RNA sequence: UAGUAUCUUCAGGGCAGGGUGAAAUUCCCUACCGGCGGUACAGCCCGCGAGCCGUAAGGCAUGAUCCGGUGAGACUCCGGAGCCGACAGUAUAGUCUGGAUGGAAGAAGAUUGAG
Numbered sequence: 001u002a003g004u005a006u007c008u009u010c011a012g013g014g015c016a017g018g019g020u021g022a023a024a025u026u027c028c029c030u031a032c033c034g035g036c037g038g039u040a041c042a043g044c045c046c047g048c049g050a051g052c053c054g055u056a057a058g059g060c061a062u063g064a065u066c067c068g069g070u071g072a073g074a075c076u077c078c079g080g081a082g083c084c085g086a087c088a089g090u091a092u093a094g095u096c097u098g099g100a101u102g103g104a105a106g107a108a109g110a111u112u113g114a115g
Stems, first nucleotide, its partner, number of pairs: 005111006017029003031095002033085002035048004043083002053059001065081005087098003
Shown here is a 115-nucleotide sequence from Anaerostipes butyraticus, a member of the family "FMN riboswitch aptamer (RFN element)". A search with the family's covariance model found it, with a score of 118 bits. From the family's description: The RFN element is a highly conserved domain that is found frequently in the 5'-untranslated regions of prokaryotic mRNAs that encode for flavin mononucleotide (FMN) biosynthesis and transport proteins.